[Rfam]
RNA sequence: CAACGCAUUUCGCUGAAUCCUUGCAGGCGGCAGGGAACGGGGGAACCAAUCGGAGCCGUCAUCGGCUCUCGGGGUGAAUCGCCGGAAUCGGAAACGACCGGCGUAGGGCGACUCUUGCGCCCGAAUCCGUCAGCUAACCUCGUAAGCGUAUGAAGAGGGGCAAC
Numbered sequence: 001c002a003a004c005g006c007a008u009u010u011c012g013c014u015g016a017a018u019c020c021u022u023g024c025a026g027g028c029g030g031c032a033g034g035g036a037a038c039g040g041g042g043g044a045a046c047c048a049a050u051c052g053g054a055g056c057c058g059u060c061a062u063c064g065g066c067u068c069u070c071g072g073g074g075u076g077a078a079u080c081g082c083c084g085g086a087a088u089c090g091g092a093a094a095c096g097a098c099c100g101g102c103g104u105a106g107g108g109c110g111a112c113u114c115u116u117g118c119g120c121c122c123g124a125a126u127c128c129g130u131c132a133g134c135u136a137a138c139c140u141c142g143u144a145a146g147c148g149u150a151u152g153a154a155g156a157g158g159g160g161c162a163a164c
Stems, first nucleotide, its partner, number of pairs: 011148004018036006037143006047071001072128003080103006106122004